Background:
Shown here is a 336-nucleotide RNA from Wolbachia endosymbiont of Brugia malayi, a member of the family "Alphaproteobacteria transfer-messenger RNA". About the family: Bacterial tmRNA, also known as 10Sa RNA or SsrA, is named for its dual tRNA and mRNA-like properties. It is annotated as a non-coding RNA gene. It is one of the family's seed sequences. Lineage of the source: Bacteria > Pseudomonadati > Alphaproteobacteria > Anaplasmataceae > Wolbachia endosymbiont of Brugia malayi. The base pairs follow the family's consensus structure, which is taken from published work.
RNA sequence: UAUCUUGACAUUUAUUAAAUAUUACUAUACAAUAACUAUGUGUAUUUUAUACACUAUGGCAAUAAAAUUACCUUGUAAUAGGUGUAUUGGACCCGAGGGCAGUACUCGGCGCCUCCACCAUGUUUUUAAUUUACAUGGGGGCGAAUAAGAAUCGACAUGCAUAGUAAAGAUGGUAACUUUGCUCGGUUAGAUACCACCGCUAAGAGUUCAUAGUUUAAACGCAAACGAUAAUUUUGCUGCUGAAGGUGAUGUUGCGGUAGCUGCUUAAUUUAAGCACUAUAACUUCAUUACUAUAAGCACGGCUUAGGGAACGCCGGGUAACAGAAGUUCCCCCCA
Numbered sequence: 001u002a003u004c005u006u007g008a009c010a011u012u013u014a015u016u017a018a019a020u021a022u023u024a025c026u027a028u029a030c031a032a033u034a035a036c037u038a039u040g041u042g043u044a045u046u047u048u049a050u051a052c053a054c055u056a057u058g059g060c061a062a063u064a065a066a067a068u069u070a071c072c073u074u075g076u077a078a079u080a081g082g083u084g085u086a087u088u089g090g091a092c093c094c095g096a097g098g099g100c101a102g103u104a105c106u107c108g109g110c111g112c113c114u115c116c117a118c119c120a121u122g123u124u125u126u127u128a129a130u131u132u133a134c135a136u137g138g139g140g141g142c143g144a145a146u147a148a149g150a151a152u153c154g155a156c157a158u159g160c161a162u163a164g165u166a167a168a169g170a171u172g173g174u175a176a177c178u179u180u181g182c183u184c185g186g187u188u189a190g191a192u193a194c195c196a197c198c199g200c201u202a203a204g205a206g207u208u209c210a211u212a213g214u215u216u217a218a219a220c221g222c223a224a225a226c227g228a229u230a231a232u233u234u235u236g237c238u239g240c241u242g243a244a245g246g247u248g249a250u251g252u253u254g255c256g257g258u259a260g261c262u263g264c265u266u267a268a269u270u271u272a273a274g275c276a277c278u279a280u281a282a283c284u285u286c287a288u289u290a291c292u293a294u295a296a297g298c299a300c301g302g303c304u305u306a307g308g309g310a311a312c313g314c315c316g317g318g319u320a321a322c323a324g325a326a327g328u329u330c331c332c333c334c335c336a
Base pairs, nucleotide, nucleotide: 040054041053042052043051044050058183059182060181061180062179068176069175070174071173072172074170083161084160085159088157089156093109094108095107096106097105110143111142112141113140114139115138116137184199185198186197187196190209191208193207194206300316301315302314303313307332308331309330310329311328